[Rfam]
RNA sequence: AUCACUUCUCUGCCUUUUGGCUAAGAUCAAGUGUAGUAUCUGUUCUUAUCAGUUUAAUGUCUGUUGCGUCCCCUAUCCGGGGACCAUAUAUUAAAUUGAUUAUUUGAACAGGGAGAUGGAAUAGAAGGUUGCUCAGUCCACUCCACGCAUCAGCCCAGUAUUGCAGUGCUUCUGGGAAUGAUGCACCCCCU
Numbered sequence: 001a002u003c004a005c006u007u008c009u010c011u012g013c014c015u016u017u018u019g020g021c022u023a024a025g026a027u028c029a030a031g032u033g034u035a036g037u038a039u040c041u042g043u044u045c046u047u048a049u050c051a052g053u054u055u056a057a058u059g060u061c062u063g064u065u066g067c068g069u070c071c072c073c074u075a076u077c078c079g080g081g082g083a084c085c086a087u088a089u090a091u092u093a094a095a096u097u098g099a100u101u102a103u104u105u106g107a108a109c110a111g112g113g114a115g116a117u118g119g120a121a122u123a124g125a126a127g128g129u130u131g132c133u134c135a136g137u138c139c140a141c142u143c144c145a146c147g148c149a150u151c152a153g154c155c156c157a158g159u160a161u162u163g164c165a166g167u168g169c170u171u172c173u174g175g176g177a178a179u180g181a182u183g184c185a186c187c188c189c190c191u
Stems, first nucleotide, its partner, number of pairs: 007026003012021003047066002050063003068084006112144004118138002126133002147184006154176005
Dot-bracket structure: ......(((..(((....)))..)))....................((.(((........))).)).((((((.....))))))...........................((((..((......((....))...))..))))..((((((.(((((.............)))))..)))))).......
U2 spliceosomal RNA: a 191-nucleotide RNA sequence from Pangasianodon hypophthalmus.
Taxonomically the source falls in Pangasianodon (Eukaryota, Deuterostomia, Teleostomi, Otomorpha).
Rfam classes the family as a spliceosomal small nuclear RNA.
The base pairs follow the family's consensus structure, which is taken from published work.
The match comes from Rfam's covariance-model search (159 bits).